[Rfam]
Notes:
Shown here is a 51-nucleotide RNA from Solanum lycopersicum, a member of the family "MIR1886 microRNA precursor family". Rfam 15.1 lists 1,053 matches to the family in 6 species. Taxonomically the source falls in Solanum subgen. Lycopersicon (Eukaryota, Streptophyta, Solanales, Solanum). Pairs were carried over by alignment from the consensus structure, which was predicted with RNAalifold. Its family is annotated with miRNA-mediated post-transcriptional gene silencing and RISC complex in the Gene Ontology.
RNA sequence: UGAGAUGGAAUUAACGUUUGGACAUACGAAUUACGCUGAUUCCAUCUCAUG
Numbered sequence: 001u002g003a004g005a006u007g008g009a010a011u012u013a014a015c016g017u018u019u020g021g022a023c024a025u026a027c028g029a030a031u032u033a034c035g036c037u038g039a040u041u042c043c044a045u046c047u048c049a050u051g
Stems, first nucleotide, its partner, number of pairs: 001049013015035003018029003